[Rfam]
RNA sequence: GAUACAGAUGCACCAAAGGAACCGGGGAACCAACCCUUGCCGGACAUCCAGGCGAGGAUGGGGUGAAUCGACAAGUCCCGUUCAUGGGCGGGCAGUUCGUAGGAGACCUUCCUGCUCCGAACCCGUCAGCUAACCCGGUAGGCGAGAAGGAAGGAAAGG
Dot-bracket structure: ..(.(............).)((((((....((..........................))(((.....(((.........................)))..((((.........))))...))).........))))))....................
c-di-AMP riboswitch aptamer (ydaO/yuaA leader): a 159-nucleotide RNA sequence from Streptomyces sp. WMMB 714.